[Rfam]
RNA: glmS glucosamine-6-phosphate activated ribozyme aptamer
RNA sequence: AUAGCAAGAAAAGCGCCAGAACUUGUUGAAUCCUGGGAGAACGGGGAAGGGCAAAGAUCAGGGACGGGAAAGCUGAUCCGAGCGUCAAACUUCAGCGUGUCGACCAUGCAGGGGGCAAGUUGACGAGGUGGAGGUGUUCGAAAUAUUCGGCGGGGACCUUCCGGCUUAUCAUCGGAGCCGACAAUCGGAAUUCAAAACGCAGCGGGCAACCGGGCGUACAAAGAUCCGAUACGAUGAGGU
Dot-bracket structure: ...................((((((((......................................................................................))))))))........(((((...((((.....))))......)))))((((((.......))))))...((((((........(((..(((....))).)))........))))))..........